[Rfam]
RNA sequence: GCUUGGCAUAAUCUCAGCUGGCAACUGUGAGUUUGUGAUAAAGUCUCGCAGGUGCUGCUGGGAUUGCGCCGAGC
Numbered sequence: 001g002c003u004u005g006g007c008a009u010a011a012u013c014u015c016a017g018c019u020g021g022c023a024a025c026u027g028u029g030a031g032u033u034u035g036u037g038a039u040a041a042a043g044u045c046u047c048g049c050a051g052g053u054g055c056u057g058c059u060g061g062g063a064u065u066g067c068g069c070c071g072a073g074c
Stems, first nucleotide, its partner, number of pairs: 003072005009066009020056003026050006

Annotation
The family of this 74-nucleotide RNA sequence from Astyanax mexicanus is "mir-216 microRNA precursor family". Lineage of the source: Eukaryota > Eumetazoa > Actinopterygii > Characiphysae > Astyanax. The family's consensus secondary structure was predicted with WAR. Its Rfam clan is "mir-216 clan". The match comes from Rfam's covariance-model search (59 bits).